The family of this 61-nucleotide RNA sequence from Pristionchus pacificus is "mir-8364 microRNA precursor family".
RNA sequence: UCUUCAUUUCACACACUCUCUCGCCUCUCGGACCGGUGAGAGAGUGCGCGUAAUGAAGAGG
Numbered sequence: 001u002c003u004u005c006a007u008u009u010c011a012c013a014c015a016c017u018c019u020c021u022c023g024c025c026u027c028u029c030g031g032a033c034c035g036g037u038g039a040g041a042g043a044g045u046g047c048g049c050g051u052a053a054u055g056a057a058g059a060g061g
Base pairs, nucleotide, nucleotide: 001059002058003057004056005055006054007053010050012048014046015045016044017043019041020040021039022038